[Rfam]
RNA sequence: GGUUGACCGAUUUCUUUUGGUGUUCAGAGCUGCUUUUGUUUCUAGCACCAUUUGAAAUUGGUUACAG
Numbered sequence: 001g002g003u004u005g006a007c008c009g010a011u012u013u014c015u016u017u018u019g020g021u022g023u024u025c026a027g028a029g030c031u032g033c034u035u036u037u038g039u040u041u042c043u044a045g046c047a048c049c050a051u052u053u054g055a056a057a058u059u060g061g062u063u064a065c066a067g
Stems, first nucleotide, its partner, number of pairs: 004064001005062001007061008018050005026043003
Shown here is a 67-nucleotide RNA sequence from Perca flavescens, a member of the family "mir-29 microRNA precursor family".
The family's consensus secondary structure was predicted with PFOLD.
A reference for the family is Ambros (2001), "microRNAs: tiny regulators with great potential", Cell.
Lineage of the source: Eukaryota > Metazoa > Bilateria > Acanthomorphata > Perca.
Its family is annotated with RISC complex and gene silencing by miRNA in the Gene Ontology.
This family represents the microRNA (miRNA) precursors mir-29.